[Rfam]
A member of the RNA family "c-di-AMP riboswitch aptamer (ydaO/yuaA leader)" from Paenibacillus dendrobii, 226 nucleotides long. The match comes from Rfam's covariance-model search (74 bits).
RNA sequence: GAACCAUUCUCGCUGAGUCUUUCGUCUUCGAAAGAGCGGGGGAACCGAUACAUAGAGUUACGGCUUUACGGAAGCCGGAAGAUAAGCUCAUGAUGUAUUUGAUUUCUUUUCAGGGUCUCUGGGGUGAAUUCUAGCGUAGGCCGCCAUGAGCGGAUCUGCGAAGAUAGGGCGGUUCUCUUUCGUCCAAACCCGACAGCUAACCCCGUAAGCGCCAUAAAGAGAGGUA
Numbered sequence: 001g002a003a004c005c006a007u008u009c010u011c012g013c014u015g016a017g018u019c020u021u022u023c024g025u026c027u028u029c030g031a032a033a034g035a036g037c038g039g040g041g042g043a044a045c046c047g048a049u050a051c052a053u054a055g056a057g058u059u060a061c062g063g064c065u066u067u068a069c070g071g072a073a074g075c076c077g078g079a080a081g082a083u084a085a086g087c088u089c090a091u092g093a094u095g096u097a098u099u100u101g102a103u104u105u106c107u108u109u110u111c112a113g114g115g116u117c118u119c120u121g122g123g124g125u126g127a128a129u130u131c132u133a134g135c136g137u138a139g140g141c142c143g144c145c146a147u148g149a150g151c152g153g154a155u156c157u158g159c160g161a162a163g164a165u166a167g168g169g170c171g172g173u174u175c176u177c178u179u180u181c182g183u184c185c186a187a188a189c190c191c192g193a194c195a196g197c198u199a200a201c202c203c204c205g206u207a208a209g210c211g212c213c214a215u216a217a218a219g220a221g222a223g224g225u226a
Base pairs, nucleotide, nucleotide: 011211012210013209014208018035019034020033021032022031023030024029036206037205038204039203040202041201046121047120122191123190124189130164131163132162167185168184169183170182